[Rfam]
RNA sequence: UAAAUAAAUAAGCUUCUCUUCCCGGUUCUUCCAGGAGUUGGGAAAAGCUGGGUUGAGAGGGCAAAAAUAAAUAAAU
Numbered sequence: 001u002a003a004a005u006a007a008a009u010a011a012g013c014u015u016c017u018c019u020u021c022c023c024g025g026u027u028c029u030u031c032c033a034g035g036a037g038u039u040g041g042g043a044a045a046a047g048c049u050g051g052g053u054u055g056a057g058a059g060g061g062c063a064a065a066a067a068u069a070a071a072u073a074a075a076u
Stems, first nucleotide, its partner, number of pairs: 014059005021052005029044004034039001
mir-320 microRNA precursor family: a 76-nucleotide sequence from Callithrix jacchus. Rfam 15.1 lists 659 matches to the family in 129 species. The literature on the family includes a 2006 paper in Genome Res by Berezikov et al., "Many novel mammalian microRNA candidates identified by extensive cloning and RAKE analysis". Rfam links the family to the GO terms positive regulation of stem cell proliferation, miRNA-mediated post-transcriptional gene silencing and long-term synaptic potentiation.